[Rfam]
RNA sequence: UGAUACCAGGGGCACAAUCCUGAAGCCGUGCCAUGCUUGCAUGUGCAUGGCUGACAGGAUUAGUGCCCCGCACACACAUGAGCAUAAGAGUGUGGCGAAGCACCACGAUAUGCGAAUGUGUGUCGGGAUUGCGAGAGUGUAAAACACGGAGCAAUCCCGAGGUAUCU
Numbered sequence: 001u002g003a004u005a006c007c008a009g010g011g012g013c014a015c016a017a018u019c020c021u022g023a024a025g026c027c028g029u030g031c032c033a034u035g036c037u038u039g040c041a042u043g044u045g046c047a048u049g050g051c052u053g054a055c056a057g058g059a060u061u062a063g064u065g066c067c068c069c070g071c072a073c074a075c076a077c078a079u080g081a082g083c084a085u086a087a088g089a090g091u092g093u094g095g096c097g098a099a100g101c102a103c104c105a106c107g108a109u110a111u112g113c114g115a116a117u118g119u120g121u122g123u124c125g126g127g128a129u130u131g132c133g134a135g136a137g138u139g140u141a142a143a144a145c146a147c148g149g150a151g152c153a154a155u156c157c158c159g160a161g162g163u164a165u166c167u
Stems, first nucleotide, its partner, number of pairs: 002166006010068004016061007024052007032043004072123008082113004090106003095101002126157007137147004